[Rfam]
RNA: mir-1180 microRNA precursor family
Organism: Pongo pygmaeus
Nucleotides: 068
Stems, first nucleotide, its partner, number of pairs: 001066004006061002009058006016051002018048011031036001
Number, partner (000 for none) and nucleotide at each position: 001066g002065c003064u004063g005000c006061u007060g008000g009058a010057c011056c012055c013054a014053c015000c016051c017050g018048g019047c020046c021045g022044g023043g024042a025041a026040u027039a028038g029000u030000g031036c032000u033000c034000c035000u036031g037000g038028u039027u040026g041025u042024u043023u044022c045021c046020g047019g048018c049000u050017c051016g052000c053014g054013u055012g056011g057010g058009u059000g060007u061006g062000u063004c064003g065002g066001c067000g068000g